[Rfam]
RNA sequence: CGCGCAUGCCGCCGUCUACGGCCUGCGCGCCGUCCUGCAGCACCCGCCCGAUCUGGCACAGGGCGGGAGGAGAGAAGAGAGAAGA
Numbered sequence: 001c002g003c004g005c006a007u008g009c010c011g012c013c014g015u016c017u018a019c020g021g022c023c024u025g026c027g028c029g030c031c032g033u034c035c036u037g038c039a040g041c042a043c044c045c046g047c048c049c050g051a052u053c054u055g056g057c058a059c060a061g062g063g064c065g066g067g068a069g070g071a072g073a074g075a076a077g078a079g080a081g082a083a084g085a
Base pairs, nucleotide, nucleotide: 001029002028003027004026005025006024010020011019033071034070035069036068043067044066045065046064047063048062049061

The family of this 85-nucleotide sequence is "aspS RNA". The family's consensus secondary structure is taken from published work.